[Rfam]
A member of the RNA family "Small nucleolar RNA Z102/R77" from Artemisia annua, 85 nucleotides long. For this family Rfam cites "Identification of 66 box C/D snoRNAs in Arabidopsis thaliana: extensive gene duplications generated multiple isoforms predicting new ribosomal RNA 2'-O-methylation sites" (Barneche et al., J Mol Biol, 2001).

RNA sequence: GAAUGAGAUGAUGAUGGAUAUAUUUCCCUAUUGGUUUGAUUUUGCCAGAAUGAUGGCUAAAAGUAUUAGCUCUAACUGAUCAUUC
Numbered sequence: 001g002a003a004u005g006a007g008a009u010g011a012u013g014a015u016g017g018a019u020a021u022a023u024u025u026c027c028c029u030a031u032u033g034g035u036u037u038g039a040u041u042u043u044g045c046c047a048g049a050a051u052g053a054u055g056g057c058u059a060a061a062a063g064u065a066u067u068a069g070c071u072c073u074a075a076c077u078g079a080u081c082a083u084u085c
Base pairs, nucleotide, nucleotide: 002084003083004082005081044057045056046055